[Rfam]
RNA sequence: AACGGAAAAGCCGAAAACCGUCCAGAGUAGGCA
Numbered sequence: 001a002a003c004g005g006a007a008a009a010g011c012c013g014a015a016a017a018c019c020g021u022c023c024a025g026a027g028u029a030g031g032c033a
Stems, first nucleotide, its partner, number of pairs: 002021004010032003

The family of this 33-nucleotide sequence from Confluentibacter flavum is "DUF805b RNA". The base pairs follow the family's consensus structure, which is taken from published work. By type it is a cis-regulatory element. NCBI's taxonomy places the organism under Bacteria, Flavobacteriia, Flavobacteriales, Flavobacteriaceae, Confluentibacter. A search with the family's covariance model found it, with a score of 36 bits.